[Rfam]
RNA: Bacterial small subunit ribosomal RNA, nucleotides 1 to 544
RNA sequence: CGGAUGGAGGGUUUGAUCCUGGCUCAGGGUGAACGCUGGCGGCGUGCUUUACACAUGCAAGUUGAACGAGAACUCGGAGGUUCUUACUUCGGUAAGAAAGGAAGAGGGACAGUAGCGAACGAGUGAGUAACACGUAGUAACCUGCCCACUGGAGGGGGAGAACCACUGGAAACGGUGGCUAAUACCGCAUAAGCCCGAAAGGGGAAAGCAAUUUAUUGUGCCGGUGGAGGGGACUGCGGGCCAUCAGGAAGAUGGUGAGGUAAAAGCUCACCAAACCGACGACGGCUAUCUGACGUGAGAGCGUGAUCAGACACGAGGACACUGAGAAACGGGUCCUACUCCUACGGGAGGCAGCAGUGGGGAAUAUUGGACAAUGGGGGAAACCCUGAUCCAGCGACGCCGCGUGAACGAAGAAGUCCUUCGGGAUGUAAAGUUCUUUUAAAUGGGAAGAAGGAAAUGACGGUACCAUAGGAAUAAGCCCCGGCUAACUACGUGCCAGCAGCCGCGGUAAGACGUAGGGGGCAAGCGUUACCCGGAAUCACUG
Number, nucleotide and partner (000 for none) at each position: 001c000002g000003g000004a000005u000006g000007g000008a000009g025010g024011g023012u022013u021014u000015g000016a000017u000018c000019c000020u000021g013022g012023c011024u010025c009026a000027g534028g533029g532030u531031g000032a530033a529034c528035g527036c526037u525038g000039g403040c402041g401042g400043c399044g398045u396046g395047c361048u000049u000050u000051a000052c359053a358054c357055a000056u356057g355058c354059a000060a000061g116062u115063u114064g000065a000066a113067c112068g000069a000070g000071a000072a000073c000074u000075c000076g000077g000078a000079g000080g000081u098082u097083c096084u095085u094086a093087c092088u000089u000090c000091g000092g087093u086094a085095a084096g083097a082098a081099a000100g000101g000102a000103a000104g000105a000106g000107g000108g000109a000110c000111a000112g067113u066114a063115g062116c061117g000118a000119a000120c000121g000122a000123g314124u313125g312126a000127g000128u000129a000130a000131c000132a000133c238134g237135u236136a235137g234138u233139a000140a000141c231142c230143u000144g000145c000146c227147c226148a225149c224150u223151g222152g221153a000154g188155g000156g186157g185158g000159a000160g000161a000162a000163c178164c177165a176166c175167u174168g173169g000170a000171a000172a000173c168174g167175g166176u165177g164178g163179c000180u000181a000182a000183u000184a000185c157186c156187g000188c154189a000190u000191a000192a000193g000194c203195c202196c201197g000198a000199a000200a000201g196202g195203g194204g000205a000206a000207a000208g219209c218210a217211a000212u000213u000214u000215a000216u000217u210218g209219u208220g000221c152222c151223g150224g149225u148226g147227g146228a000229g000230g142231g141232g000233a138234c137235u136236g135237c134238g133239g000240g286241c285242c284243a000244u000245c000246a000247g277248g276249a000250a000251g000252a000253u273254g272255g271256u270257g269258a268259g267260g000261u000262a000263a000264a000265a000266g000267c259268u258269c257270a256271c255272c254273a253274a000275a000276c248277c247278g000279a000280c000281g000282a000283c000284g242285g241286c240287u000288a000289u311290c310291u309292g308293a304294c303295g302296u301297g000298a000299g000300a000301g296302c295303g294304u293305g000306a000307u000308c292309a291310g290311a289312c125313a124314c123315g000316a337317g336318g335319a334320c333321a000322c000323u000324g000325a000326g000327a000328a000329a000330c000331g000332g000333g320334u319335c318336c317337u316338a000339c350340u349341c348342c347343u000344a000345c000346g000347g342348g341349a340350g339351g000352c000353a000354g058355c057356a056357g054358u053359g052360g000361g047362g000363a000364a000365u000366a000367u393368u000369g392370g391371a390372c000373a000374a000375u388376g387377g386378g385379g384380g000381a000382a000383a000384c379385c378386c377387u376388g375389a000390u371391c370392c369393a367394g000395c046396g045397a000398c044399g043400c042401c041402g040403c039404g000405u000406g436407a435408a434409c433410g000411a000412a000413g000414a000415a000416g427417u426418c425419c424420u000421u000422c000423g000424g419425g418426a417427u416428g000429u000430a000431a000432a000433g409434u408435u407436c406437u000438u000439u000440u000441a000442a000443a469444u468445g467446g466447g000448a000449a000450g461451a000452a000453g000454g000455a000456a000457a000458u000459g000460a000461c450462g000463g000464u000465a000466c446467c445468a444469u443470a000471g000472g000473a000474a000475u000476a000477a000478g523479c522480c521481c520482c519483g000484g000485c000486u000487a000488a000489c518490u517491a516492c515493g514494u000495g000496c000497c000498a000499g506500c505501a000502g000503c000504c000505g500506c499507g000508g000509u000510a000511a000512g000513a000514c493515g492516u491517a490518g489519g482520g481521g480522g479523c478524a000525a037526g036527c035528g034529u033530u032531a030532c029533c028534c027535g000536g000537a000538a000539u000540c000541a000542c000543u000544g000